[Rfam]
Description:
The family of this 230-nucleotide RNA from Streptomyces echinatus is "Streptomyces sRNA 4677". Lineage of the source: Bacteria > Actinomycetes > Kitasatosporales > Streptomycetaceae > Streptomyces. Located in the intergenic region between anti-sigma factor SCO4677 gene and a putative regulatory protein gene SCO4676. scr4677 expression requires the SCO4677 activity and scr4677 sRNA itself seem to affect the levels of the SCO4676-associated transcripts. Rfam 15.1 lists 563 matches to the family in 285 species. The pairing is the family consensus, mapped onto this sequence. The literature on the family includes a 2014 paper in PLoS One by Hindra et al., "Complex intra-operonic dynamics mediated by a small RNA in Streptomyces coelicolor".

RNA sequence: CGACCCGGUGGUGCCCGACCCCAGAAGACCAAAGAACCGGGGUAAGAACCGAACCCACCCCCACCGCCCCCGUCGCUCACUCGCCGGAGUGAAUAUGCCCGACGCAACUGGCGCGGCAGGGGAGUUGUCGGGCAGUGUCGGCGACGACCACCCCGAACAUGCAUCGGCCCCCGCCGGGACUGCCAUCCCAGUGCGAGGGCCUGAUCACCGAGGAAGGCAAGAACUUCCUG
Numbered sequence: 001c002g003a004c005c006c007g008g009u010g011g012u013g014c015c016c017g018a019c020c021c022c023a024g025a026a027g028a029c030c031a032a033a034g035a036a037c038c039g040g041g042g043u044a045a046g047a048a049c050c051g052a053a054c055c056c057a058c059c060c061c062c063a064c065c066g067c068c069c070c071c072g073u074c075g076c077u078c079a080c081u082c083g084c085c086g087g088a089g090u091g092a093a094u095a096u097g098c099c100c101g102a103c104g105c106a107a108c109u110g111g112c113g114c115g116g117c118a119g120g121g122g123a124g125u126u127g128u129c130g131g132g133c134a135g136u137g138u139c140g141g142c143g144a145c146g147a148c149c150a151c152c153c154c155g156a157a158c159a160u161g162c163a164u165c166g167g168c169c170c171c172c173g174c175c176g177g178g179a180c181u182g183c184c185a186u187c188c189c190a191g192u193g194c195g196a197g198g199g200c201c202u203g204a205u206c207a208c209c210g211a212g213g214a215a216g217g218c219a220a221g222a223a224c225u226u227c228c229u230g
Base pairs, nucleotide, nucleotide: 007209008208009207010206016075017074018073019072077092078091079090080089081088082087107136108135109134110133166201167200168199169198170197172195173194174193176189177188178187179186212228213227214226215225216224